[Rfam]
RNA sequence: ACCGGUUUUGAACCUUCUCUCCUCCUCCCUGAAGGUUCAGAAGCUAGCGGCGGGAUCUCUCCUCCUCCCUGAUCCCGCCGCAUACAGAAUUACGAGACCCUCUCUCCUCCUCCCUGAGGGUCUUGUGA
Dot-bracket structure: ......(((.(((((((.............))))))).)))......((((((((((.............))))))))))..............((((((((.............)))))))).....
About this RNA:
The family of this 128-nucleotide RNA sequence from Marivivens niveibacter is "Alphaproteobacterial ar14". Pairs were carried over by alignment from the consensus structure. By type it is a small RNA. About the family: Smr14C2 was renamed NfeR1 (Nodule Formation Efficiency RNA) highly expressed in salt stress and during the symbiotic interaction on legume roots. Gene Ontology term of the family: biological process involved in symbiotic interaction.